Rfam assigns this 178-nucleotide RNA from Hafnia alvei to the family "FMN riboswitch aptamer (RFN element)". The family's consensus secondary structure is taken from published work.
RNA sequence: GCUUAUUCUCAGGGCGGGGUGGAAGUCCCCACCGGCGGUAAAUUUAUGCAUAACGCAUGCCUUUCAAGGCAAGCGCAGCAUAAAAAGCCCGCGAGCGCUUAUACCGCAAGGUGUAAGGACAGCAGAUCCGGUGUAAUUCCGGAGCCGACGGUUAGAGUCCGGAUGGGAGAGAGUAACG
Dot-bracket structure: ..((((((((......(((.......))).[[((((((..................................................))))..((.........................))...(((((.......)))))..)).(((.....]]))).......))))))))..
Numbered sequence: 001g002c003u004u005a006u007u008c009u010c011a012g013g014g015c016g017g018g019g020u021g022g023a024a025g026u027c028c029c030c031a032c033c034g035g036c037g038g039u040a041a042a043u044u045u046a047u048g049c050a051u052a053a054c055g056c057a058u059g060c061c062u063u064u065c066a067a068g069g070c071a072a073g074c075g076c077a078g079c080a081u082a083a084a085a086a087g088c089c090c091g092c093g094a095g096c097g098c099u100u101a102u103a104c105c106g107c108a109a110g111g112u113g114u115a116a117g118g119a120c121a122g123c124a125g126a127u128c129c130g131g132u133g134u135a136a137u138u139c140c141g142g143a144g145c146c147g148a149c150g151g152u153u154a155g156a157g158u159c160c161g162g163a164u165g166g167g168a169g170a171g172a173g174u175a176a177c178g
Stems, first nucleotide, its partner, number of pairs: 003176008017029003031158002033147002035092004095123002127143005149161003